Annotation: A member of the RNA family "Selenocysteine insertion sequence 1", 67 nucleotides long. Rfam's curators put it in the seed alignment. Rfam links the family to the GO term selenocysteine incorporation. Rfam describes the family as follows. The incorporation of selenocysteine into a protein sequence is directed by an in-frame UGA codon (usually a stop codon) within the coding region of the mRNA. Selenoprotein mRNAs contain a conserved secondary structure in the 3' UTR that is required for the distinction of UGA stop from UGA selenocysteine.

RNA sequence: CUCUGAUAAUGAUGUCUCUCCCUCUAACUCCCAGUAAGGACUGGGAGAGGCUGAACAAACCUCAGAG
Numbered sequence: 001c002u003c004u005g006a007u008a009a010u011g012a013u014g015u016c017u018c019u020c021c022c023u024c025u026a027a028c029u030c031c032c033a034g035u036a037a038g039g040a041c042u043g044g045g046a047g048a049g050g051c052u053g054a055a056c057a058a059a060c061c062u063c064a065g066a067g
Base pairs, nucleotide, nucleotide: 001067002066003065004064005063014051015050016049017048018047019046020045021044022043029040030039031038
Dot-bracket structure: (((((........(((((((((......(((......)))..)))))))))...........)))))